RNA: Clostridiales-1 RNA
Nucleotides: 218
Base pairs, nucleotide, nucleotide: 001218002217003216004215005214006213007212010069011068012067013066016063017062018061019060020059021058022057026052027051028050029049030048032045033044034043035042036041073125074124075123076122078120079119080118083115084114085113086112091108092107093106094105095104096103097102128208129207130206131205132204133203134202
Number, partner (000 for none) and nucleotide at each position: 001218a002217g003216a004215u005214g006213c007212c008000a009000g010069g011068g012067u013066u014000c015000a016063a017062a018061g019060g020059u021058c022057u023000g024000a025000a026052u027051c028050c029049a030048c031000g032045c033044u034043g035042u036041g037000c038000c039000u040000g041036c042035a043034c044033a045032g046000a047000a048030g049029u050028g051027g052026a053000u054000g055000a056000a057022a058021g059020a060019c061018c062017u063016u064000g065000g066013g067012a068011c069010c070000c071000g072000c073125c074124c075123c076122g077000a078120u079119a080118u081000g082000a083115g084114c085113a086112u087000a088000a089000a090000a091108g092107u093106g094105g095104g096103a097102u098000g099000g100000a101000u102097a103096u104095c105094c106093c107092a108091c109000g110000a111000u112086a113085u114084g115083c116000g117000a118080a119079u120078a121000g122076c123075g124074g125073g126000c127000a128208g129207g130206a131205u132204u133203u134202u135000g136000g137000g138000u139000u140000g141000c142000c143000g144000a145000g146000u147000g148000c149000c150000a151000g152000u153000g154000g155000c156000a157000c158000u159000c160000g161000u162000u163000u164000g165000g166000c167000a168000a169000c170000g171000a172000c173000c174000g175000g176000a177000g178000u179000g180000a181000a182000a183000c184000g185000g186000a187000g188000a189000c190000g191000c192000g193000c194000a195000g196000c197000g198000c199000g200000g201000a202134a203133a204132a205131a206130u207129c208128c209000g210000c211000a212007g213006g214005c215004a216003u217002c218001u